[Rfam]
RNA sequence: CCCCCUGCGGACGGCUCUGACGCGCGGUCCAGGCAUCGGUCGCCGGGACGGCGCCGAGCUGCCGGCGAGACCGAUCCGUGGCGUG
Numbered sequence: 001c002c003c004c005c006u007g008c009g010g011a012c013g014g015c016u017c018u019g020a021c022g023c024g025c026g027g028u029c030c031a032g033g034c035a036u037c038g039g040u041c042g043c044c045g046g047g048a049c050g051g052c053g054c055c056g057a058g059c060u061g062c063c064g065g066c067g068a069g070a071c072c073g074a075u076c077c078g079u080g081g082c083g084u085g
Base pairs, nucleotide, nucleotide: 001085003083005081006080007079008078009077010076011075013060014059015058022054023053024052025051027049028048029047038072039071040068041067042066043065044064
Dot-bracket structure: (.(.(((((((.(((......((((.(((........[[[[[[[..))).))))...)))...]]]]]..]]..))))))).).)

c-di-GMP-II-GAG riboswitch aptamer: an 85-nucleotide sequence.
Rfam links the family to the GO terms cyclic-di-GMP binding and regulation of gene expression.
Its Rfam clan is "c-di-GMP_II riboswitch clan".
It is one of the family's seed sequences.